[Rfam]
RNA sequence: AAAUGCAAAGCAAGUAGGAAAUACAGGGUAAGCGUAAGGGGCUACAUCGUGAGGGUUGGUGACCUACCGUGAUGAACUGAAAAAGAUUCAAAGUAGCGGUUUGAGCGAUGUGUAUAGACAGUAACCCGGUAAAAUGUACUGAAAAUAGGGAUAAGAGUUGAAUAGGUGCAAAGUGAAUAAGUAAAUUGUGAAAGUUCAGGGUUGACCAACAACCACACCAAGAUUAUUAACUUAUCAAAUGAACAGGUACUAAACGAGAUGACACAGCACUUUGUUUUU
Numbered sequence: 001a002a003a004u005g006c007a008a009a010g011c012a013a014g015u016a017g018g019a020a021a022u023a024c025a026g027g028g029u030a031a032g033c034g035u036a037a038g039g040g041g042c043u044a045c046a047u048c049g050u051g052a053g054g055g056u057u058g059g060u061g062a063c064c065u066a067c068c069g070u071g072a073u074g075a076a077c078u079g080a081a082a083a084a085g086a087u088u089c090a091a092a093g094u095a096g097c098g099g100u101u102u103g104a105g106c107g108a109u110g111u112g113u114a115u116a117g118a119c120a121g122u123a124a125c126c127c128g129g130u131a132a133a134a135u136g137u138a139c140u141g142a143a144a145a146u147a148g149g150g151a152u153a154a155g156a157g158u159u160g161a162a163u164a165g166g167u168g169c170a171a172a173g174u175g176a177a178u179a180a181g182u183a184a185a186u187u188g189u190g191a192a193a194g195u196u197c198a199g200g201g202u203u204g205a206c207c208a209a210c211a212a213c214c215a216c217a218c219c220a221a222g223a224u225u226a227u228u229a230a231c232u233u234a235u236c237a238a239a240u241g242a243a244c245a246g247g248u249a250c251u252a253a254a255c256g257a258g259a260u261g262a263c264a265c266a267g268c269a270c271u272u273u274g275u276u277u278u279u
Stems, first nucleotide, its partner, number of pairs: 001279003005275006024129001026127004045110006054064003067099004136250004145240002150236006156225004165219004174198003200214005
Notes
RAGATH-8 RNA: a 279-nucleotide sequence. Pairs were carried over by alignment from the consensus structure, which is taken from published work. Rfam's curators put it in the seed alignment. For this family Rfam cites "New classes of self-cleaving ribozymes revealed by comparative genomics analysis" (Weinberg et al., Nat Chem Biol, 2015). Rfam links the family to the GO term catalytic activity. The family's RNA type in Rfam is small RNA.